[Rfam]
RNA sequence: AAUUACGAGAUAAUCGCACGGAUAGAAAUAUCUGUGAGGAAAGUCCUGGCUGGCACAAGCUGCGAUGUGGUUUACACAAGGCGUGGAGCCUGCUUGUAGAGAAAAUGCCAAGGGCAACCUUGGGGAGGGUAACCUUACGGAGACUGAAAAUAUCCUACUAGGGAAUGAGUAAGUCAUAAAGUGCUAUAGAGACGAGUCUAUUUGGUAACAAAUAGAGUGAGACGACGUAAACCCCAUUUUGUCAGAAACCCUCUGAGAGGGGAACCUGCUAAAGGGAAUAGGAACUGAAAGCGGGUAUCUGUUUUUAACAGGUAAGAUAGAUGAUUAUCCUUGACAGAAUCAGGCUUAUUGUA
Numbered sequence: 001a002a003u004u005a006c007g008a009g010a011u012a013a014u015c016g017c018a019c020g021g022a023u024a025g026a027a028a029u030a031u032c033u034g035u036g037a038g039g040a041a042a043g044u045c046c047u048g049g050c051u052g053g054c055a056c057a058a059g060c061u062g063c064g065a066u067g068u069g070g071u072u073u074a075c076a077c078a079a080g081g082c083g084u085g086g087a088g089c090c091u092g093c094u095u096g097u098a099g100a101g102a103a104a105a106u107g108c109c110a111a112g113g114g115c116a117a118c119c120u121u122g123g124g125g126a127g128g129g130u131a132a133c134c135u136u137a138c139g140g141a142g143a144c145u146g147a148a149a150a151u152a153u154c155c156u157a158c159u160a161g162g163g164a165a166u167g168a169g170u171a172a173g174u175c176a177u178a179a180a181g182u183g184c185u186a187u188a189g190a191g192a193c194g195a196g197u198c199u200a201u202u203u204g205g206u207a208a209c210a211a212a213u214a215g216a217g218u219g220a221g222a223c224g225a226c227g228u229a230a231a232c233c234c235c236a237u238u239u240u241g242u243c244a245g246a247a248a249c250c251c252u253c254u255g256a257g258a259g260g261g262g263a264a265c266c267u268g269c270u271a272a273a274g275g276g277a278a279u280a281g282g283a284a285c286u287g288a289a290a291g292c293g294g295g296u297a298u299c300u301g302u303u304u305u306u307a308a309c310a311g312g313u314a315a316g317a318u319a320g321a322u323g324a325u326u327a328u329c330c331u332u333g334a335c336a337g338a339a340u341c342a343g344g345c346u347u348a349u350u351g352u353a
Base pairs, nucleotide, nucleotide: 004353005352006351008349009329010328011327012326013325014324015323017036018035019034020033021032022031041347042346043345045344046343047342048341049340050245051244052243053242054241055097056096057095058094059093060092103240104239105237106236107235108123109122110121111120112119113118124138125136126135127134128133139234140233142175143174144173145172150166154163155162156161181232182231183228184227197216198215199214200213201212202211203210204209249261250260251259265295266294267293268292269291270290296314297313298312299311300310301309
Overview: The record is a 353-nucleotide RNA sequence from endosymbiont 'TC1' of Trimyema compressum, which matches "Bacterial RNase P class B" in Rfam. A reference for the family is Frank and Pace (1998), "Ribonuclease P: unity and diversity in a tRNA processing ribozyme", Annu Rev Biochem. Rfam describes the family as follows. Ribonuclease P (RNase P) is a ubiquitous endoribonuclease, found in archaea, bacteria and eukarya as well as chloroplasts and mitochondria. Its best characterised activity is the generation of mature 5'-ends of tRNAs by cleaving the 5'-leader elements of precursor-tRNAs. It is annotated as a ribozyme. A search with the family's covariance model found it, with a score of 189 bits. Taxonomically the source falls in Bacillota (Bacteria, Bacillati).